[Rfam]
RNA sequence: UAGUGAGUAAAUCCUUCCUGAAAAGGAUGAGGCCGCCUUGAGGCGGGUGGGACAAAGUAAGGAAGGGGUCACUA
Numbered sequence: 001u002a003g004u005g006a007g008u009a010a011a012u013c014c015u016u017c018c019u020g021a022a023a024a025g026g027a028u029g030a031g032g033c034c035g036c037c038u039u040g041a042g043g044c045g046g047g048u049g050g051g052a053c054a055a056a057g058u059a060a061g062g063a064a065g066g067g068g069u070c071a072c073u074a
Base pairs, nucleotide, nucleotide: 001074002073003072004071005070006069012067013066014065015064016063017062018061019060033046034045035044036043037042
RNA: DUF3800-X RNA
Organism: Methanoculleus marisnigri